RNA: Iron response element I
RNA sequence: GGGCCUCCUGCUUCAACAGUGCUUGGAUGGAGCCC
Numbered sequence: 001g002g003g004c005c006u007c008c009u010g011c012u013u014c015a016a017c018a019g020u021g022c023u024u025g026g027a028u029g030g031a032g033c034c035c
Base pairs, nucleotide, nucleotide: 001035002034003033004032006031007030008029010028012027013026014025015024016023017021